Record summary:
Shown here is a 55-nucleotide sequence from Solanum tuberosum, a member of the family "MIR8008 microRNA precursor family". The organism belongs to Solanum, within Eukaryota. The match comes from Rfam's covariance-model search (77 bits).
RNA sequence: AAUUUCAGAAAAGCGACGGAUAGUGUCCUUUAGUCCGUCGCUUUUCUGGGAUUUC
Numbered sequence: 001a002a003u004u005u006c007a008g009a010a011a012a013g014c015g016a017c018g019g020a021u022a023g024u025g026u027c028c029u030u031u032a033g034u035c036c037g038u039c040g041c042u043u044u045u046c047u048g049g050g051a052u053u054u055c
Base pairs, nucleotide, nucleotide: 001053002052003051004050005049006048007047008046009045010044011043012042013041014040015039016038017037018036019035020034021033